The family of this 169-nucleotide sequence from Brevibacillus centrosporus is "glmS glucosamine-6-phosphate activated ribozyme aptamer".
[Rfam]
RNA sequence: ACUUGUUGGAAAGCGCCAGCACUGCGGCAGACCGGAUGUGCCCAGUGGACGAGGUGGAGGUUUAUCGAAGGAUUCGGCGGAUACCUCCCGGGAGCAGUAUCACUACCGUGGAGCGCAGGUACAAAAUAUCGGAGAGAUCCGAUGAACAAAAUCCUGUGCAUGAUACGUU
Dot-bracket structure: ...................(((((.(.(.........)..).)))))........(((((....((((.....))))......)))))(((.((........)).)))....(((((((.......(((((((....)))))))........)))))))..........
Rfam classes the family as a riboswitch. It scores 103 bits against the family's covariance model.